[Rfam]
RNA: Plastid-ccsA-ndhD-1 3UTR RNA
RNA sequence: CAGUUGUUAGAACCUUUUGAAUCAAGUAGUGGAGCGAUUCAAAAGGUUCUUGACA
Numbered sequence: 001c002a003g004u005u006g007u008u009a010g011a012a013c014c015u016u017u018u019g020a021a022u023c024a025a026g027u028a029g030u031g032g033a034g035c036g037a038u039u040c041a042a043a044a045g046g047u048u049c050u051u052g053a054c055a
Base pairs, nucleotide, nucleotide: 007052009050010049011048012047013046014045015044016043017042018041019040020039021038022037023036